[Rfam]
RNA: FMN riboswitch aptamer (RFN element)
Organism: Bacillaceae bacterium SAS-127
RNA sequence: UUGAUCCUUUGGGGCGGGGCGAAAUUCCCCACCGGCGGUGAUGAGCUAAUGCUCUUAGUCCGUGACCCGCAUGCGGUUUCGUUUGCGGUGGAUUCGGUGAAAUUCCGAAGCCGACAGUGAUAGUCUGGAUGGGAAAAGGAUGAG
Numbered sequence: 001u002u003g004a005u006c007c008u009u010u011g012g013g014g015c016g017g018g019g020c021g022a023a024a025u026u027c028c029c030c031a032c033c034g035g036c037g038g039u040g041a042u043g044a045g046c047u048a049a050u051g052c053u054c055u056u057a058g059u060c061c062g063u064g065a066c067c068c069g070c071a072u073g074c075g076g077u078u079u080c081g082u083u084u085g086c087g088g089u090g091g092a093u094u095c096g097g098u099g100a101a102a103u104u105c106c107g108a109a110g111c112c113g114a115c116a117g118u119g120a121u122a123g124u125c126u127g128g129a130u131g132g133g134a135a136a137a138g139g140a141u142g143a144g
Stems, first nucleotide, its partner, number of pairs: 004141007017029003031124002033113002035063004058111002067088002093109005115127003